This 67-nucleotide sequence from Desulfobacteraceae bacterium SEEP-SAG9 belongs to the Rfam family "int-alpA RNA".

[Rfam]
RNA sequence: UCCGGGGAUAGCUGGACGCAGUGAACGGCGGUUUUCCUGAACCGUUUUCCCCGGACUCCAACCAGGG
Numbered sequence: 001u002c003c004g005g006g007g008a009u010a011g012c013u014g015g016a017c018g019c020a021g022u023g024a025a026c027g028g029c030g031g032u033u034u035u036c037c038u039g040a041a042c043c044g045u046u047u048u049c050c051c052c053g054g055a056c057u058c059c060a061a062c063c064a065g066g067g
Base pairs, nucleotide, nucleotide: 001055002054003053004052005051006050007049008048011022012021013020014019028045029044030043031042032041035067036066037065038064039063

NCBI's taxonomy places the organism under Bacteria, Pseudomonadati, Thermodesulfobacteriota, Desulfobacterales, Desulfobacteraceae. About the family: Acidobacteria (1 example), Planctomycetes (1 example), Proteobacteria.